RNA: tRNA
Organism: Corynebacterium vitaeruminis
RNA sequence: GCGUCUUUAGCUCAGCUGGGAGAGCAGCUGGUUUACACCCAGCAGGUCGGGGGUUCGAGCCCCUCAGGACGCA
Numbered sequence: 001g002c003g004u005c006u007u008u009a010g011c012u013c014a015g016c017u018g019g020g021a022g023a024g025c026a027g028c029u030g031g032u033u034u035a036c037a038c039c040c041a042g043c044a045g046g047u048c049g050g051g052g053g054u055u056c057g058a059g060c061c062c063c064u065c066a067g068g069a070c071g072c073a
Stems, first nucleotide, its partner, number of pairs: 001072007010025004027043005049065005